Background
This 83-nucleotide RNA sequence from Drosophila albomicans belongs to the Rfam family "mir-263 microRNA precursor family". Pairs were carried over by alignment from the consensus structure, which was predicted with RNAalifold. The source organism's lineage runs through Eukaryota, Bilateria, Ecdysozoa, Brachycera and Drosophila. For this family Rfam cites "Direct sequencing and expression analysis of a large number of miRNAs in Aedes aegypti and a multi-species survey of novel mosquito miRNAs" (Li et al., BMC Genomics, 2009). Gene Ontology terms of the family: RISC complex and miRNA-mediated post-transcriptional gene silencing.
RNA sequence: UACCAUUGUAUCUUGGCACUGGGAGAAUUCACAGUUGAUUUUUGAAUAUUCUGUGGUUCUGCGGGUGCCAAAAUCUAAUGAGU
Numbered sequence: 001u002a003c004c005a006u007u008g009u010a011u012c013u014u015g016g017c018a019c020u021g022g023g024a025g026a027a028u029u030c031a032c033a034g035u036u037g038a039u040u041u042u043u044g045a046a047u048a049u050u051c052u053g054u055g056g057u058u059c060u061g062c063g064g065g066u067g068c069c070a071a072a073a074u075c076u077a078a079u080g081a082g083u
Stems, first nucleotide, its partner, number of pairs: 004080005010074001013071006020064001022062001023060001025059003029056006